[Rfam]
RNA sequence: AUAAUUGGUCAGAUCUGUAGCCUUGCAUAUAUAUACAUUUAUAUUUAUGUGCAAGGCUACAGAUCUGACCAAUUGU
Dot-bracket structure: ..((((((((((((((((((((((((((..(((............)))))))))))))))))))))))))))))..
A member of the RNA family "mir-19 microRNA precursor family" from Chelydra serpentina, 76 nucleotides long. The source organism's lineage runs through Eukaryota, Opisthokonta, Metazoa, Vertebrata and Chelydra. Clan: mir-19 clan. On this family, see Mourelatos et al., Genes Dev 2002: "miRNPs: a novel class of ribonucleoproteins containing numerous microRNAs".